Shown here is a 130-nucleotide RNA from Vasconcelosia minhoensis, a member of the family "c-di-AMP riboswitch aptamer (ydaO/yuaA leader)". Taxonomically the source falls in Vasconcelosia minhoensis (Bacteria, Bacillati, Nodosilineales, Vasconcelosia). A search with the family's covariance model found it, with a score of 80 bits. The base pairs follow the family's consensus structure.
[Rfam]
RNA sequence: UCUGAGCCGUUGCCUAAUUCGGUCAUACCGAAGCGGAGGACCCAACUUUGGGGCGUACCCUGCAAAUGCAGGGAGGAGACUCUCACUCCUAGCCCGUCAGCUAACUUCGUCGGCGUUGAGAGGAGAUAGC
Dot-bracket structure: ..........((((...(((.........)))((((((....((....))(((.....((((......))))..((((.......))))...))).........)))))).))))...............